[Rfam]
Shown here is a 75-nucleotide RNA from Haemonchus placei, a member of the family "mir-5928 microRNA precursor family".
Rfam 15.1 lists 1,672 matches to the family in 12 species.
RNA sequence: GGCACAAAUUUGAAGUGGAAUAGAUUAGUAUGGCUAGCUGAUCCUACUAAUCUACUCUACUUCAAAAUUGGGCCC
Numbered sequence: 001g002g003c004a005c006a007a008a009u010u011u012g013a014a015g016u017g018g019a020a021u022a023g024a025u026u027a028g029u030a031u032g033g034c035u036a037g038c039u040g041a042u043c044c045u046a047c048u049a050a051u052c053u054a055c056u057c058u059a060c061u062u063c064a065a066a067a068u069u070g071g072g073c074c075c
Stems, first nucleotide, its partner, number of pairs: 001074003005070003009066001011064009021054003025050006032043002035040001